[Rfam]
RNA sequence: AUUGCACAUUCAAGCCACAGCAGAAGUGUACAUGGCAUGACCCUACCAGAUUCCAGUGAAUCUAUGAAUUCUGCU
Numbered sequence: 001a002u003u004g005c006a007c008a009u010u011c012a013a014g015c016c017a018c019a020g021c022a023g024a025a026g027u028g029u030a031c032a033u034g035g036c037a038u039g040a041c042c043c044u045a046c047c048a049g050a051u052u053c054c055a056g057u058g059a060a061u062c063u064a065u066g067a068a069u070u071c072u073g074c075u
Stems, first nucleotide, its partner, number of pairs: 014042001016039001019075007026038003048063006

Mammalian CPEB3 ribozyme: a 75-nucleotide RNA sequence from Alligator sinensis. It scores 38 bits against the family's covariance model. Its family is annotated with RNA nuclease activity in the Gene Ontology.